The record is an 87-nucleotide sequence from Pedobacter psychrophilus, which matches "Flavo-1 RNA" in Rfam.
Rfam 15.1 lists 7,497 matches to the family in 411 species.
NCBI's taxonomy places the organism under Bacteria, Pseudomonadati, Bacteroidota, Sphingobacteriales, Pedobacter.
The family's RNA type in Rfam is small RNA.

[Rfam]
RNA sequence: AUUUAUAUGUGCGUUAGGGAUUGAAACGGCAUCCUUUUUUUCGCCUUUUUUGGCGAAGAAAAGAUACAGUGUAAAGCCCGUCAAAAC
Numbered sequence: 001a002u003u004u005a006u007a008u009g010u011g012c013g014u015u016a017g018g019g020a021u022u023g024a025a026a027c028g029g030c031a032u033c034c035u036u037u038u039u040u041u042c043g044c045c046u047u048u049u050u051u052g053g054c055g056a057a058g059a060a061a062a063g064a065u066a067c068a069g070u071g072u073a074a075a076g077c078c079c080g081u082c083a084a085a086a087c
Base pairs, nucleotide, nucleotide: 017079018078019077021075022074026070027069031065032064033063037060038059039058040057041056042055043054044053